[Rfam]
RNA sequence: GGAGGCGGUUCUCGUCUGGUGACGGACGCGGUCCUCAAAACCGCUGUGGCCCAGCACCUGGGUCAGGCGGGUUCGAUUCCCGUCCGCCUCC
Numbered sequence: 001g002g003a004g005g006c007g008g009u010u011c012u013c014g015u016c017u018g019g020u021g022a023c024g025g026a027c028g029c030g031g032u033c034c035u036c037a038a039a040a041c042c043g044c045u046g047u048g049g050c051c052c053a054g055c056a057c058c059u060g061g062g063u064c065a066g067g068c069g070g071g072u073u074c075g076a077u078u079c080c081c082g083u084c085c086g087c088c089u090c091c
Stems, first nucleotide, its partner, number of pairs: 001091008012025005028044005047065005068082004
Shown here is a 91-nucleotide sequence from Nocardioides piscis, a member of the family "Selenocysteine transfer RNA". Lineage of the source: Bacteria > Bacillati > Actinomycetes > Propionibacteriales > Nocardioides. The base pairs follow the family's consensus structure, which is taken from published work.